[Rfam]
c-di-GMP-I riboswitch aptamer: a 96-nucleotide sequence from Paenibacillus sp. FSL H7-0737. Lineage of the source: Bacteria > Bacillati > Bacillota > Paenibacillaceae > Paenibacillus. The base pairs follow the family's consensus structure, which is taken from published work.
RNA sequence: AAUUAAUAUUGGCAAAAUCUUCGAAAGAGGAUGACGCAAAACCAUGGAUCUACAGCCUCAUUAUUAAUCAGAGGCCAUGACUGCCAGGUUGCAGAA
Number, nucleotide and partner (000 for none) at each position: 001a000002a000003u000004u000005a000006a000007u000008a000009u000010u000011g000012g037013c036014a000015a000016a000017a032018u031019c030020u029021u028022c027023g000024a000025a000026a000027g022028a021029g020030g019031a018032u017033g000034a000035c000036g013037c012038a000039a000040a090041a089042c088043c087044a000045u086046g085047g084048a000049u080050c079051u000052a000053c000054a000055g075056c074057c073058u072059c000060a000061u000062u000063a000064u000065u000066a000067a000068u000069c000070a000071g000072a058073g057074g056075c055076c000077a000078u000079g050080a049081c000082u000083g000084c047085c046086a045087g043088g042089u041090u040091g000092c000093a000094g000095a000096a000